RNA sequence: AAAGUCGAUCAGACAAUCGCUUUUUACUUCAGUAAAAAGAGGAAAGUCCGGGCUCCAUAGGGUAAAGUGCCAGGUAAUGCCUGGGAGGCGCGAGCCUACGGAAAGUGCCACAGAAAAUAUACCGCCUUGCCUGAAGCAUAGCGACAGUUGAGGUAAGGGUGAAAUGGUGCGGUAAGAGCGCACCGCGCGAUUGGCAACAGUCGUGGCAGGGUAAACCCCACUGGGAGCAAGACCAAAUAGGAAUCCAUCUUGCUGCAAAGCUGGAACGUAUGACCCGUACGGGAUUCGGGUAGGUCGCUCGAGGCUUAUGGUGACGUAAGCCCUAGAUGAAUGAUUGUCCAAGACAGAACCCGGCUUAUCGAUCGACUUUUUCU
Numbered sequence: 001a002a003a004g005u006c007g008a009u010c011a012g013a014c015a016a017u018c019g020c021u022u023u024u025u026a027c028u029u030c031a032g033u034a035a036a037a038a039g040a041g042g043a044a045a046g047u048c049c050g051g052g053c054u055c056c057a058u059a060g061g062g063u064a065a066a067g068u069g070c071c072a073g074g075u076a077a078u079g080c081c082u083g084g085g086a087g088g089c090g091c092g093a094g095c096c097u098a099c100g101g102a103a104a105g106u107g108c109c110a111c112a113g114a115a116a117a118u119a120u121a122c123c124g125c126c127u128u129g130c131c132u133g134a135a136g137c138a139u140a141g142c143g144a145c146a147g148u149u150g151a152g153g154u155a156a157g158g159g160u161g162a163a164a165u166g167g168u169g170c171g172g173u174a175a176g177a178g179c180g181c182a183c184c185g186c187g188c189g190a191u192u193g194g195c196a197a198c199a200g201u202c203g204u205g206g207c208a209g210g211g212u213a214a215a216c217c218c219c220a221c222u223g224g225g226a227g228c229a230a231g232a233c234c235a236a237a238u239a240g241g242a243a244u245c246c247a248u249c250u251u252g253c254u255g256c257a258a259a260g261c262u263g264g265a266a267c268g269u270a271u272g273a274c275c276c277g278u279a280c281g282g283g284a285u286u287c288g289g290g291u292a293g294g295u296c297g298c299u300c301g302a303g304g305c306u307u308a309u310g311g312u313g314a315c316g317u318a319a320g321c322c323c324u325a326g327a328u329g330a331a332u333g334a335u336u337g338u339c340c341a342a343g344a345c346a347g348a349a350c351c352c353g354g355c356u357u358a359u360c361g362a363u364c365g366a367c368u369u370u371u372u373c374u
Base pairs, nucleotide, nucleotide: 001370002369003368004367005366006365007364008363009362010361011359012339013338014337015336016335017334018333020039021038022037023036024035025034026033027032044357045356046355048354049353050352051351052350053227054226055225056224060276061275062274063273066222067221068220069219070084071083072082073081074080085099086097087096088095089094100218101217105216106215107212108211109210122158123157124154125153126152127151128150129149131147132146166184167183168182169181170180171179185207186205187204188203189202190201191200192199193198231296232295233294234293241287242286243285244284245283246282267281268280269279270278271277303322304321305320306319307318308317309316310315
The family of this 374-nucleotide sequence from Legionella clemsonensis is "Bacterial RNase P class A". Rfam links the family to the GO terms tRNA processing, ribonuclease P activity and dimeric ribonuclease P complex. Pairs were carried over by alignment from the consensus structure, which is taken from published work.